[Rfam]
MAT2A 3'UTR stem loop F: a 65-nucleotide RNA from Hymenochirus boettgeri.
On this family, see Parker et al., Genome Res 2011: "New families of human regulatory RNA structures identified by comparative analysis of vertebrate genomes".
The family's consensus secondary structure is taken from published work.
The family's RNA type in Rfam is cis-regulatory element.
RNA sequence: UGCAGAUAAAGCUAACUUUACCAGUGUUGUACAGAGAAACUGGGUGUUUACAAGCUUUGCCUGCA
Dot-bracket structure: (((((.(.((((.(((..(.(((((((...))......)))))).))).....)))).).)))))
Numbered sequence: 001u002g003c004a005g006a007u008a009a010a011g012c013u014a015a016c017u018u019u020a021c022c023a024g025u026g027u028u029g030u031a032c033a034g035a036g037a038a039a040c041u042g043g044g045u046g047u048u049u050a051c052a053a054g055c056u057u058u059g060c061c062u063g064c065a
Stems, first nucleotide, its partner, number of pairs: 001065005007059001009057004014048003019044001021043005026032002

The match comes from Rfam's covariance-model search (55 bits).